[Rfam]
RNA sequence: GGCGAUAAACGGUCGAUGAAAUAAACCUUUCGGACCCGGGGGCGGUACCCGGCGCCUCCACCUGAACCCAUCGUGGAUGGGCUCAGGCGGGGGCGAAAUAGGAUCGACGAGGGCGUAAAGAUCGAACUUUCGCUCGGCAUGGUUCCGCCGUUAUCGGGCCGAAUCAAUAGUUGCCAACGACAACUAUGCGGAAGCCCGUCUCGCCGCGUAA
Numbered sequence: 001g002g003c004g005a006u007a008a009a010c011g012g013u014c015g016a017u018g019a020a021a022u023a024a025a026c027c028u029u030u031c032g033g034a035c036c037c038g039g040g041g042g043c044g045g046u047a048c049c050c051g052g053c054g055c056c057u058c059c060a061c062c063u064g065a066a067c068c069c070a071u072c073g074u075g076g077a078u079g080g081g082c083u084c085a086g087g088c089g090g091g092g093g094c095g096a097a098a099u100a101g102g103a104u105c106g107a108c109g110a111g112g113g114c115g116u117a118a119a120g121a122u123c124g125a126a127c128u129u130u131c132g133c134u135c136g137g138c139a140u141g142g143u144u145c146c147g148c149c150g151u152u153a154u155c156g157g158g159c160c161g162a163a164u165c166a167a168u169a170g171u172u173g174c175c176a177a178c179g180a181c182a183a184c185u186a187u188g189c190g191g192a193a194g195c196c197c198g199u200c201u202c203g204c205c206g207c208g209u210a211a
Base pairs, nucleotide, nucleotide: 001134002133003132004131005130014124015123016122017121026113027112028111030110031109032108036052037051038050039049040048053095054094055093056092057091058090059089135150136149137148138147

Shown here is a 211-nucleotide RNA from Consotaella salsifontis, a member of the family "permuted transfer-messenger RNA". Pairs were carried over by alignment from the consensus structure, which is taken from published work. The source organism's lineage runs through Bacteria, Pseudomonadota, Alphaproteobacteria, Hyphomicrobiales and Consotaella. A search with the family's covariance model found it, with a score of 152 bits.